[Rfam]
About this RNA
A member of the RNA family "Small nucleolar RNA SNORD18" from Nippostrongylus brasiliensis, 70 nucleotides long. The base pairs follow the family's consensus structure, which was predicted with PFOLD. Gene Ontology terms of the family: RNA processing and nucleolus. Taxonomically the source falls in Nippostrongylus (Eukaryota, Bilateria, Chromadorea, Rhabditomorpha). Rfam classes the family as a C/D-box small nucleolar RNA. The literature on the family includes a 2001 paper in EMBO J by Giorgi et al., "Release of U18 snoRNA from its host intron requires interaction of Nop1p with the Rnt1p endonuclease".
RNA sequence: UGGCUGUGAUGACUUGUGGUUGGUCCGUGUUUCCGACAAGCGAGUGAUGUUUCUACAACCAUCUGAGCCA
Number, nucleotide and partner (000 for none) at each position: 001u070002g069003g068004c067005u000006g000007u000008g000009a000010u000011g000012a000013c000014u000015u000016g000017u000018g000019g000020u000021u000022g000023g000024u000025c000026c000027g000028u000029g000030u000031u000032u000033c000034c000035g000036a000037c000038a000039a000040g000041c000042g000043a000044g000045u000046g000047a000048u000049g000050u000051u000052u000053c000054u000055a000056c000057a000058a000059c000060c000061a000062u000063c000064u000065g000066a000067g004068c003069c002070a001